[Rfam]
RNA sequence: AAUCAUUGCUGGUAGGUGAGGCUACUUUAAGGAUACGGAUUACUGCCGUCACUUUGUGGAGACAAAAAGUGUUUGGUUUGAAAAGUCUAAAUCGGAUCAAGGUUUAGAAUAAUGUAAUUUCAUUGCCUUAUUGAGCUAAAACUUAAACAUUGGCUUUUUAA
Numbered sequence: 001a002a003u004c005a006u007u008g009c010u011g012g013u014a015g016g017u018g019a020g021g022c023u024a025c026u027u028u029a030a031g032g033a034u035a036c037g038g039a040u041u042a043c044u045g046c047c048g049u050c051a052c053u054u055u056g057u058g059g060a061g062a063c064a065a066a067a068a069g070u071g072u073u074u075g076g077u078u079u080g081a082a083a084a085g086u087c088u089a090a091a092u093c094g095g096a097u098c099a100a101g102g103u104u105u106a107g108a109a110u111a112a113u114g115u116a117a118u119u120u121c122a123u124u125g126c127c128u129u130a131u132u133g134a135g136c137u138a139a140a141a142c143u144u145a146a147a148c149a150u151u152g153g154c155u156u157u158u159u160a161a
Stems, first nucleotide, its partner, number of pairs: 005157001008154003011148001013100001015143003020137003025133001028130005039118005045077004054068002057064002086108003091103003
RNA: M-box riboswitch aptamer (ykoK leader)